RNA sequence: GGGCACAUGGUGGAUGCCUUGGCAUCGAGAGCCGAUGAAGGACGUGGGAGCCUGCGAAAUGCCCUGGGGAGUUGGCAACCGAGCGUUGAUCCGGGGAUGUCCGAAUGGGGAAACCCAGCACGAGUCAUGUCGUGUUACCUGCACCUGAAUGAAAUAGGGUGUGUGGAGGGAACGCGGGGAAGUGAAACAUCUCAGUACCCGCAGGAAGAGAAAACAAAAGUGAUUCCGAGAGUAGUGGCGAGCGAAAUCGGAUGAGGCCAAACCUCAGUUGUGUGAUAGCCGGCAGGCGUUGCAGUUGAGGGGUUGUGGGAGUGUUGUUGCCGUCUCUGCCGGGGUGGCGCACAGUAAGAAACCGUUCGUGAAGUCGAAGUCCGUUGGAAAGCGGUGCCGUAGCGGGUGAUAGCCCCGUAGACGAUAGUGUGCGGCUGUGUUCAGCAUUUCCCAAGUAACACGCCACCCCUGAAAUGGUGUGUGAAUCUGGCGGGACCACCCGUUAAGCCUAAAUACUUCUCGAUGACCGAUAGCGGACCAGUACCGUGAGGGAAAGGUGAAAAGUACCCCUGGCGGGGAGUGAAAUAGUACCUGAAACCAUGUGCCUAC
Numbered sequence: 001g002g003g004c005a006c007a008u009g010g011u012g013g014a015u016g017c018c019u020u021g022g023c024a025u026c027g028a029g030a031g032c033c034g035a036u037g038a039a040g041g042a043c044g045u046g047g048g049a050g051c052c053u054g055c056g057a058a059a060u061g062c063c064c065u066g067g068g069g070a071g072u073u074g075g076c077a078a079c080c081g082a083g084c085g086u087u088g089a090u091c092c093g094g095g096g097a098u099g100u101c102c103g104a105a106u107g108g109g110g111a112a113a114c115c116c117a118g119c120a121c122g123a124g125u126c127a128u129g130u131c132g133u134g135u136u137a138c139c140u141g142c143a144c145c146u147g148a149a150u151g152a153a154a155u156a157g158g159g160u161g162u163g164u165g166g167a168g169g170g171a172a173c174g175c176g177g178g179g180a181a182g183u184g185a186a187a188c189a190u191c192u193c194a195g196u197a198c199c200c201g202c203a204g205g206a207a208g209a210g211a212a213a214a215c216a217a218a219a220g221u222g223a224u225u226c227c228g229a230g231a232g233u234a235g236u237g238g239c240g241a242g243c244g245a246a247a248u249c250g251g252a253u254g255a256g257g258c259c260a261a262a263c264c265u266c267a268g269u270u271g272u273g274u275g276a277u278a279g280c281c282g283g284c285a286g287g288c289g290u291u292g293c294a295g296u297u298g299a300g301g302g303g304u305u306g307u308g309g310g311a312g313u314g315u316u317g318u319u320g321c322c323g324u325c326u327c328u329g330c331c332g333g334g335g336u337g338g339c340g341c342a343c344a345g346u347a348a349g350a351a352a353c354c355g356u357u358c359g360u361g362a363a364g365u366c367g368a369a370g371u372c373c374g375u376u377g378g379a380a381a382g383c384g385g386u387g388c389c390g391u392a393g394c395g396g397g398u399g400a401u402a403g404c405c406c407c408g409u410a411g412a413c414g415a416u417a418g419u420g421u422g423c424g425g426c427u428g429u430g431u432u433c434a435g436c437a438u439u440u441c442c443c444a445a446g447u448a449a450c451a452c453g454c455c456a457c458c459c460c461u462g463a464a465a466u467g468g469u470g471u472g473u474g475a476a477u478c479u480g481g482c483g484g485g486a487c488c489a490c491c492c493g494u495u496a497a498g499c500c501u502a503a504a505u506a507c508u509u510c511u512c513g514a515u516g517a518c519c520g521a522u523a524g525c526g527g528a529c530c531a532g533u534a535c536c537g538u539g540a541g542g543g544a545a546a547g548g549u550g551a552a553a554a555g556u557a558c559c560c561c562u563g564g565c566g567g568g569g570a571g572u573g574a575a576a577u578a579g580u581a582c583c584u585g586a587a588a589c590c591a592u593g594u595g596c597c598u599a600c
Stems, first nucleotide, its partner, number of pairs: 001598010016583001017548002021519002023516007030508002032169002040102003043056003062096007071084003107116003117136007138166002140163007173204001174202005184191002214221002224504001225252005235243002255501004263301011308443003313437005351427001353425004358420003362416001364413003370386001372385004389393001395407003449473008480495005535542002558569004
The record is a 600-nucleotide part of an RNA from Nocardioides sp. Root79, which matches "Bacterial large subunit ribosomal RNA" in Rfam. Rfam links the family to the GO terms ribosome and structural constituent of ribosome.